[Rfam]
RNA sequence: GCGCAUAGCCAGGGGCGCCGCAAGGCUGAGACGUACCCUUCGAACCUGACCCGGAUAAUGCUGGCGGAGGGAGGUUGAACCGAAGAGAA
Numbered sequence: 001g002c003g004c005a006u007a008g009c010c011a012g013g014g015g016c017g018c019c020g021c022a023a024g025g026c027u028g029a030g031a032c033g034u035a036c037c038c039u040u041c042g043a044a045c046c047u048g049a050c051c052c053g054g055a056u057a058a059u060g061c062u063g064g065c066g067g068a069g070g071g072a073g074g075u076u077g078a079a080c081c082g083a084a085g086a087g088a089a
Base pairs, nucleotide, nucleotide: 006077007076008075009074010073011039012038013037014036016033017026018025019024045070046069047068051064052063053062054061
This 89-nucleotide RNA sequence from Tateyamaria sp. ANG-S1 belongs to the Rfam family "TPP riboswitch aptamer (THI element)".
Vitamin B(1) in its active form thiamin pyrophosphate (TPP) is an essential coenzyme that is synthesised by coupling of pyrimidine and thiazole moieties in bacteria.
The match comes from Rfam's covariance-model search (63 bits).